[Rfam]
RNA sequence: GGCUGCGUGAUAAGGGGAAUAGUAGCAAUCGAAAAAAUACAGAGAGACAGCGGCCGGUGAAAGCUGUUUUUGAUUCGUUGUGAACUCGCCCCUGUACUUAAAAGCACGUAUCCCGGCUUAUCCACCGUUAUCGGAACCGAGUGAGCGAAAAAUUCGCUAAUGUGGGUGGUACCGCGGGAUACAGCCUCUCGUCCCAUAA
Numbered sequence: 001g002g003c004u005g006c007g008u009g010a011u012a013a014g015g016g017g018a019a020u021a022g023u024a025g026c027a028a029u030c031g032a033a034a035a036a037a038u039a040c041a042g043a044g045a046g047a048c049a050g051c052g053g054c055c056g057g058u059g060a061a062a063g064c065u066g067u068u069u070u071u072g073a074u075u076c077g078u079u080g081u082g083a084a085c086u087c088g089c090c091c092c093u094g095u096a097c098u099u100a101a102a103a104g105c106a107c108g109u110a111u112c113c114c115g116g117c118u119u120a121u122c123c124a125c126c127g128u129u130a131u132c133g134g135a136a137c138c139g140a141g142u143g144a145g146c147g148a149a150a151a152a153u154u155c156g157c158u159a160a161u162g163u164g165g166g167u168g169g170u171a172c173c174g175c176g177g178g179a180u181a182c183a184g185c186c187u188c189u190c191g192u193c194c195c196a197u198a199a
Stems, first nucleotide, its partner, number of pairs: 007097002014092004025081005035071003046068006101111001114127003144158006163196004174192005
The family of this 199-nucleotide RNA sequence from Salimicrobium jeotgali is "T-box leader". Uncharged tRNA acts as the effector for transcription antitermination of genes in the T-box leader family. The source organism's lineage runs through Bacteria, Bacillati, Bacillota, Bacillaceae and Salimicrobium. The family's RNA type in Rfam is cis-regulatory leader. Gene Ontology term of the family: tRNA binding. For this family Rfam cites "The GA motif: an RNA element common to bacterial antitermination systems, rRNA, and eukaryotic RNAs" (Winkler et al., RNA, 2001).